[Rfam]
RNA sequence: UCAUGCAAGGAUCGCCCCCCGUCAGCGCGUCGCGCCCACGGGGGCAGUUGGC
Numbered sequence: 001u002c003a004u005g006c007a008a009g010g011a012u013c014g015c016c017c018c019c020c021g022u023c024a025g026c027g028c029g030u031c032g033c034g035c036c037c038a039c040g041g042g043g044g045c046a047g048u049u050g051g052c
Stems, first nucleotide, its partner, number of pairs: 016044007025035004

The record is a 52-nucleotide RNA from Thalassovita gelatinovora, which matches "ffh sRNA" in Rfam. It scores 57 bits against the family's covariance model. The family's consensus secondary structure is taken from published work.